A member of the RNA family "Metazoan signal recognition particle RNA" from Rhodnius prolixus, 299 nucleotides long.
The match comes from Rfam's covariance-model search (242 bits).
NCBI's taxonomy places the organism under Eukaryota, Bilateria, Panarthropoda, Allotriocarida, Rhodnius.
Rfam classes the family as a non-coding RNA gene.
Gene Ontology terms of the family: SRP-dependent cotranslational protein targeting to membrane, signal sequence recognition and signal recognition particle, endoplasmic reticulum targeting.

RNA sequence: ACUGGGAGUUCUGGCGUGCUCCUGUAAUCCAGCUACUUGGAGGUCAGAUUCUGAGGAUGGUUUGAGGACGGGGUUCACUGCGGCUGGGUGUUACACGUUGACCGGGCGUCCGCACUAAGCUGGCCAUCAACAUGGUGUACUACUGGGAACUCUAGUGCACCAGGUUAGCUAAAGAGGGGCGAAUCGGGCCAGGGAGGAAACUCAGCAGCCAAAAGUCCCCGUGGCUUGCAGUAGUGGGAUCGCGCCUGUGAGUGGGACCCCAGUUGUAGCCCGGCCAAUACAACUAAACCAGAAUCUUU
Numbered sequence: 001a002c003u004g005g006g007a008g009u010u011c012u013g014g015c016g017u018g019c020u021c022c023u024g025u026a027a028u029c030c031a032g033c034u035a036c037u038u039g040g041a042g043g044u045c046a047g048a049u050u051c052u053g054a055g056g057a058u059g060g061u062u063u064g065a066g067g068a069c070g071g072g073g074u075u076c077a078c079u080g081c082g083g084c085u086g087g088g089u090g091u092u093a094c095a096c097g098u099u100g101a102c103c104g105g106g107c108g109u110c111c112g113c114a115c116u117a118a119g120c121u122g123g124c125c126a127u128c129a130a131c132a133u134g135g136u137g138u139a140c141u142a143c144u145g146g147g148a149a150c151u152c153u154a155g156u157g158c159a160c161c162a163g164g165u166u167a168g169c170u171a172a173a174g175a176g177g178g179g180c181g182a183a184u185c186g187g188g189c190c191a192g193g194g195a196g197g198a199a200a201c202u203c204a205g206c207a208g209c210c211a212a213a214a215g216u217c218c219c220c221g222u223g224g225c226u227u228g229c230a231g232u233a234g235u236g237g238g239a240u241c242g243c244g245c246c247u248g249u250g251a252g253u254g255g256g257a258c259c260c261c262a263g264u265u266g267u268a269g270c271c272c273g274g275c276c277a278a279u280a281c282a283a284c285u286a287a288a289c290c291a292g293a294a295u296c297u298u299u
Stems, first nucleotide, its partner, number of pairs: 001044003004023006011016001028041003046297008058286005066276002069273004078269011092256001094254003098250001103248007110238002113236005119229002122226006129166003133162010145150001176219005187210003194203003